A member of the RNA family "MIR2912 microRNA precursor family" from Populus trichocarpa, 156 nucleotides long. The source organism's lineage runs through Eukaryota, Streptophyta, Embryophyta, Salicaceae and Populus. The match comes from Rfam's covariance-model search (157 bits).
RNA sequence: UCUAGAACUCAAGAUAUGGGUUGAACAUUGAACAGUGUCUGGGCUGCAUGACAGAUUUUGACUUCUCUGUUGUUGCUAAAAUUUGGACUUCCAAACAACAAAAUUGAGUCUUGGACUCUUCAUGAAUGUUUUAGACCUAUGUCUUAGCUUUCUAGC
Numbered sequence: 001u002c003u004a005g006a007a008c009u010c011a012a013g014a015u016a017u018g019g020g021u022u023g024a025a026c027a028u029u030g031a032a033c034a035g036u037g038u039c040u041g042g043g044c045u046g047c048a049u050g051a052c053a054g055a056u057u058u059u060g061a062c063u064u065c066u067c068u069g070u071u072g073u074u075g076c077u078a079a080a081a082u083u084u085g086g087a088c089u090u091c092c093a094a095a096c097a098a099c100a101a102a103a104u105u106g107a108g109u110c111u112u113g114g115a116c117u118c119u120u121c122a123u124g125a126a127u128g129u130u131u132u133a134g135a136c137c138u139a140u141g142u143c144u145u146a147g148c149u150u151u152c153u154a155g156c
Stems, first nucleotide, its partner, number of pairs: 002155006008147002011145010021134005027129002035123003041119003045115001048112001050110003054105007063097001069091001072088003